The family of this 68-nucleotide sequence from Machaerirhynchus nigripectus is "mir-302 microRNA precursor family". Clan: mir-290 clan. Gene Ontology terms of the family: RISC complex and miRNA-mediated post-transcriptional gene silencing. NCBI's taxonomy places the organism under Eukaryota, Metazoa, Chordata, Craniata, Machaerirhynchus.
RNA sequence: CCAUUACUUAAAUGUGGAUGUGCUUGCUUAGCUCCACAAUAGUAAGUGCUUCCACGUUUUAGUGGUGG
Numbered sequence: 001c002c003a004u005u006a007c008u009u010a011a012a013u014g015u016g017g018a019u020g021u022g023c024u025u026g027c028u029u030a031g032c033u034c035c036a037c038a039a040u041a042g043u044a045a046g047u048g049c050u051u052c053c054a055c056g057u058u059u060u061a062g063u064g065g066u067g068g
Base pairs, nucleotide, nucleotide: 001068002067003066005064006063007062008061010059011058012057013056014055015054016053017052018051020049021048022047023046024045025044026043027042028041